Shown here is a 215-nucleotide RNA from Lachancea dasiensis, a member of the family "Small nucleolar RNA snR34". It scores 101 bits against the family's covariance model. The organism belongs to Lachancea, within Eukaryota. The family's consensus secondary structure was predicted with WAR. The family is grouped with related families in Rfam's "SNORA65 clan".

[Rfam]
RNA sequence: GAAUCAAAAAUGCACGGAAACGAUGCCACAGUUAGCUUAGUCUGUCUUCUAACAGCUGCUAAUUGCCAAUAUUCCAUUUCCUAUUUAUAGGAAGUUAAUAAAAUGGAAUAUGAGUUUCCCAGAUUAACUUAUGAAAUGACUGGAUUUUAGGAAGUUCGCGGUCCGUGAUUCCUUCUGGAACGAUAGACCGGGAAUGUCGAAGAAAGGCUACAUUU
Numbered sequence: 001g002a003a004u005c006a007a008a009a010a011u012g013c014a015c016g017g018a019a020a021c022g023a024u025g026c027c028a029c030a031g032u033u034a035g036c037u038u039a040g041u042c043u044g045u046c047u048u049c050u051a052a053c054a055g056c057u058g059c060u061a062a063u064u065g066c067c068a069a070u071a072u073u074c075c076a077u078u079u080c081c082u083a084u085u086u087a088u089a090g091g092a093a094g095u096u097a098a099u100a101a102a103a104u105g106g107a108a109u110a111u112g113a114g115u116u117u118c119c120c121a122g123a124u125u126a127a128c129u130u131a132u133g134a135a136a137u138g139a140c141u142g143g144a145u146u147u148u149a150g151g152a153a154g155u156u157c158g159c160g161g162u163c164c165g166u167g168a169u170u171c172c173u174u175c176u177g178g179a180a181c182g183a184u185a186g187a188c189c190g191g192g193a194a195u196g197u198c199g200a201a202g203a204a205a206g207g208c209u210a211c212a213u214u215u
Stems, first nucleotide, its partner, number of pairs: 016075004030064007042055004128206003140202001154195004159190001161188003169180004
By type it is an H/ACA-box small nucleolar RNA.